[Rfam]
RNA sequence: GCACCCUUGACUCACUCUGAGAUCUGCCAUCUUACUCCGUGGCUUAUUUCUAUUUUUGUUCAAGGAAGAGGAAUGAAGCCCAAUACUCACCGCGUAUACUAGCUUUAAGCUCCUGUGGAUAUAGCGGUCCAUCAUCACCGGCUACAU
Number, nucleotide and partner (000 for none) at each position: 001g000002c000003a000004c000005c000006c000007u063008u062009g061010a000011c000012u000013c000014a000015c000016u000017c000018u000019g050020a049021g048022a047023u046024c000025u000026g043027c042028c041029a000030u000031c000032u000033u000034a000035c000036u000037c000038c000039g000040u000041g028042g027043c026044u000045u000046a023047u022048u021049u020050c019051u000052a000053u000054u000055u000056u000057u000058g000059u000060u000061c009062a008063a007064g000065g000066a000067a000068g000069a000070g000071g000072a000073a000074u000075g000076a000077a143078g142079c141080c140081c000082a000083a000084u000085a000086c000087u000088c000089a000090c127091c126092g125093c124094g000095u000096a122097u121098a120099c000100u119101a000102g000103c118104u117105u000106u000107a000108a000109g000110c000111u000112c000113c000114u000115g000116u000117g104118g103119a100120u098121a097122u096123a000124g093125c092126g091127g090128u000129c000130c000131a000132u000133c000134a000135u000136c000137a000138c000139c000140g080141g079142c078143u077144a000145c000146a000147u000
Small nucleolar RNA snR80: a 147-nucleotide sequence from Fusarium venenatum. Rfam links the family to the GO terms RNA processing and nucleolus. It scores 41 bits against the family's covariance model.